[Rfam]
RNA sequence: AGUUUUGUGCUGUGGCAGUAUCAUAGCCAAUGAUUAUUAUCCAAGGCAUGAUUAUUGCUAAUUGAAAACUUUCCCCAAUACUCCACCGUGACAACUUGCAACAUAGUGAGCAUUGGCAAUUUUUUUUUUUUUUUUUUGAGA
Numbered sequence: 001a002g003u004u005u006u007g008u009g010c011u012g013u014g015g016c017a018g019u020a021u022c023a024u025a026g027c028c029a030a031u032g033a034u035u036a037u038u039a040u041c042c043a044a045g046g047c048a049u050g051a052u053u054a055u056u057g058c059u060a061a062u063u064g065a066a067a068a069c070u071u072u073c074c075c076c077a078a079u080a081c082u083c084c085a086c087c088g089u090g091a092c093a094a095c096u097u098g099c100a101a102c103a104u105a106g107u108g109a110g111c112a113u114u115g116g117c118a119a120u121u122u123u124u125u126u127u128u129u130u131u132u133u134u135u136u137u138g139a140g141a
Base pairs, nucleotide, nucleotide: 020052021051022050023049024048026047027046028045036040086116087115088113089112090111094107095106096105130141131140132139133138
A member of the RNA family "U4 spliceosomal RNA" from Cercocebus atys, 141 nucleotides long. Rfam describes the family as follows. U4 small nuclear RNA (U4 snRNA) is a component of the major U2-dependent spliceosome. NCBI's taxonomy places the organism under Eukaryota, Metazoa, Gnathostomata, Boreoeutheria, Cercocebus. Rfam links the family to the GO terms U4 snRNP and spliceosomal tri-snRNP complex assembly.